This 138-nucleotide RNA from Klebsiella pneumoniae belongs to the Rfam family "RtT RNA". It is one of the family's seed sequences. From the family's description: This family represents a bacterial cis-regulatory element known as RtT RNA. The exact function of RtT is unknown although it is thought that it may be involved in changing the cellular response in relation to amino acid starvation. The base pairs follow the family's consensus structure, which is taken from published work. Rfam classes the family as a cis-regulatory element. The organism belongs to Klebsiella pneumoniae subsp. pneumoniae, within Bacteria.
[Rfam]
RNA sequence: UUGGCCCGCAGGGCGAGUCUCAGGAUGAGACGAGUUUCUCUGCAGCAGGUUCGGGUCGAACGUAGUGAGACAACGGAGCCGCUUGCGGCGACGGCCCGCAGGGCGAGGCGAAGCCGAGUCAUCCUGCACGACCCACCA
Numbered sequence: 001u002u003g004g005c006c007c008g009c010a011g012g013g014c015g016a017g018u019c020u021c022a023g024g025a026u027g028a029g030a031c032g033a034g035u036u037u038c039u040c041u042g043c044a045g046c047a048g049g050u051u052c053g054g055g056u057c058g059a060a061c062g063u064a065g066u067g068a069g070a071c072a073a074c075g076g077a078g079c080c081g082c083u084u085g086c087g088g089c090g091a092c093g094g095c096c097c098g099c100a101g102g103g104c105g106a107g108g109c110g111a112a113g114c115c116g117a118g119u120c121a122u123c124c125u126g127c128a129c130g131a132c133c134c135a136c137c138a
Stems, first nucleotide, its partner, number of pairs: 015129001017127001021126004026121001041105002050100001052098002057067002074093002080090003